[Rfam]
RNA sequence: AAGCGUUACAAUUCAUUCCCGAAAGGAUUCACCUCUGGGUGAAGAUGCCUUGUAACCAAAUAAUUAUAUUAAUGGGGGAAUUUCCAUAUG
Number, nucleotide and partner (000 for none) at each position: 001a000002a000003g000004c000005g000006u000007u000008a000009c000010a000011a000012u000013u000014c000015a000016u080017u079018c078019c077020c076021g000022a000023a051024a050025g049026g048027a000028u043029u042030c041031a040032c039033c000034u000035c000036u000037g000038g000039g032040u031041g030042a029043a028044g000045a000046u000047g000048c026049c025050u024051u023052g000053u000054a000055a000056c075057c074058a000059a000060a000061u000062a000063a000064u000065u000066a000067u000068a000069u000070u000071a000072a000073u000074g057075g056076g020077g019078g018079a017080a016081u000082u000083u000084c000085c000086a000087u000088a000089u000090g000
Background:
The record is a 90-nucleotide sequence from Ligilactobacillus equi, which matches "SAM-III riboswitch aptamer (SMK box)" in Rfam. Lineage of the source: Bacteria > Bacillati > Lactobacillaceae > Ligilactobacillus > Ligilactobacillus equi.